[Rfam]
RNA: Betaproteobacteria toxic small RNA
Organism: Oxalobacteraceae bacterium CAVE-383
RNA sequence: CGUCUCCUCCAAUUCCCUCUGGAUUGGAUUAAGCCCGCACAUCCUUGACUGUGCGGGCUUUUUUUU
Numbered sequence: 001c002g003u004c005u006c007c008u009c010c011a012a013u014u015c016c017c018u019c020u021g022g023a024u025u026g027g028a029u030u031a032a033g034c035c036c037g038c039a040c041a042u043c044c045u046u047g048a049c050u051g052u053g054c055g056g057g058c059u060u061u062u063u064u065u066u
Base pairs, nucleotide, nucleotide: 008028009027010026011025012024013023014022015021032059033058034057035056036055037054038053039052040051041050